[Rfam]
RNA: Ruegeria cis2 sRNA
RNA sequence: AUCGGUUUUGAGAGGCGUGUAAUUGACGAAAACAAAGCCGCGGGUCUGGUCGUUGAUGUGAAACAGCGGAUUCCACGAAAACCACGGCAACAGCGCGUUGGGCAGCACAUUCGCCACGAACAUCUUGCCCGAGGCGAACAUGUUGAUCCGCUG
Numbered sequence: 001a002u003c004g005g006u007u008u009u010g011a012g013a014g015g016c017g018u019g020u021a022a023u024u025g026a027c028g029a030a031a032a033c034a035a036a037g038c039c040g041c042g043g044g045u046c047u048g049g050u051c052g053u054u055g056a057u058g059u060g061a062a063a064c065a066g067c068g069g070a071u072u073c074c075a076c077g078a079a080a081a082c083c084a085c086g087g088c089a090a091c092a093g094c095g096c097g098u099u100g101g102g103c104a105g106c107a108c109a110u111u112c113g114c115c116a117c118g119a120a121c122a123u124c125u126u127g128c129c130c131g132a133g134g135c136g137a138a139c140a141u142g143u144u145g146a147u148c149c150g151c152u153g
Base pairs, nucleotide, nucleotide: 002035004033006032007031008030009029014024015023037057039055040054041052042051043050064153065152066151067150068149071081072080086147088145089144090143091142092141098134099133101130102129103127104126105125107123110119111118